The record is a 90-nucleotide RNA from Ananas comosus, which matches "mir-393 microRNA precursor family" in Rfam. A search with the family's covariance model found it, with a score of 76 bits. On this family, see Kruszka et al., J Plant Physiol 2012: "Role of microRNAs and other sRNAs of plants in their changing environments". Rfam links the family to the GO terms RISC complex and miRNA-mediated post-transcriptional gene silencing.

RNA sequence: GGAGGAAGCAUCCAAAGGGAUCGCAUUGAUCCUGUUCUGACCGAGGGAUCAAAGAAGACGGGAUCAUGCGAUCCUUUCGGAUACUUCCUC
Numbered sequence: 001g002g003a004g005g006a007a008g009c010a011u012c013c014a015a016a017g018g019g020a021u022c023g024c025a026u027u028g029a030u031c032c033u034g035u036u037c038u039g040a041c042c043g044a045g046g047g048a049u050c051a052a053a054g055a056a057g058a059c060g061g062g063a064u065c066a067u068g069c070g071a072u073c074c075u076u077u078c079g080g081a082u083a084c085u086u087c088c089u090c
Stems, first nucleotide, its partner, number of pairs: 002090005008084001010082004015077007023069004028065005036058003
Dot-bracket structure: .(((((.(.((((.(((((((.((((.(((((...(((.................)))..))))))))).))))))).)))).).)))))